[Rfam]
RNA sequence: AAUUAAAUAGCUAUUAUCACUUGUAUAACCUCAAUAAUAUGGUUUGAGGGUGUCUACCAGGAACCGUAAAAUCCUGAUUACAAAAUUUGUUUAUGACAUU
Numbered sequence: 001a002a003u004u005a006a007a008u009a010g011c012u013a014u015u016a017u018c019a020c021u022u023g024u025a026u027a028a029c030c031u032c033a034a035u036a037a038u039a040u041g042g043u044u045u046g047a048g049g050g051u052g053u054c055u056a057c058c059a060g061g062a063a064c065c066g067u068a069a070a071a072u073c074c075u076g077a078u079u080a081c082a083a084a085a086u087u088u089g090u091u092u093a094u095g096a097c098a099u100u
Base pairs, nucleotide, nucleotide: 021083022082023081024080025079029049030048031047032046033045034044058076059075060074061073062072